RNA sequence: GUUCCCUUUAACUACAGUCCCGUGAGGCUGAGAAGGAAUUAGAGAUACGUGCAGAUAGGGUAACCUAUGUCUGUUAUUAACGUCUACUCAAAAACCUCUCAUCAUACGGUGAGAGGUUUUUUCAUU
Numbered sequence: 001g002u003u004c005c006c007u008u009u010a011a012c013u014a015c016a017g018u019c020c021c022g023u024g025a026g027g028c029u030g031a032g033a034a035g036g037a038a039u040u041a042g043a044g045a046u047a048c049g050u051g052c053a054g055a056u057a058g059g060g061u062a063a064c065c066u067a068u069g070u071c072u073g074u075u076a077u078u079a080a081c082g083u084c085u086a087c088u089c090a091a092a093a094a095c096c097u098c099u100c101a102u103c104a105u106a107c108g109g110u111g112a113g114a115g116g117u118u119u120u121u122u123c124a125u126u
Stems, first nucleotide, its partner, number of pairs: 003038001005036005015030005051074007059066002090121014
Shown here is a 126-nucleotide sequence from Anaerobacillus isosaccharinicus, a member of the family "PyrR binding site". The family's RNA type in Rfam is cis-regulatory element.